[Rfam]
RNA sequence: CUGGCCUUUUCUGUUUUGUUUUCACUCACAGAGGGUGGGACAGGAGGAAGAGUGAAGGAAAAGGUCAC
Number, nucleotide and partner (000 for none) at each position: 001c000002u067003g066004g065005c064006c063007u062008u061009u060010u059011c058012u057013g000014u000015u000016u000017u000018g000019u000020u000021u000022u055023c054024a053025c052026u051027c050028a000029c000030a000031g000032a000033g000034g000035g000036u000037g000038g000039g000040a000041c000042a000043g000044g000045a000046g000047g000048a000049a000050g027051a026052g025053u024054g023055a022056a000057g012058g011059a010060a009061a008062a007063g006064g005065u004066c003067a002068c000

Shown here is a 68-nucleotide sequence from Peromyscus maniculatus, a member of the family "XIST 3' intron conserved motif". On this family, see Parker et al., Genome Res 2011: "New families of human regulatory RNA structures identified by comparative analysis of vertebrate genomes". The family's RNA type in Rfam is long non-coding RNA. Pairs were carried over by alignment from the consensus structure, which is taken from published work. Taxonomically the source falls in Peromyscus maniculatus (Eukaryota, Craniata, Boreoeutheria, Muroidea).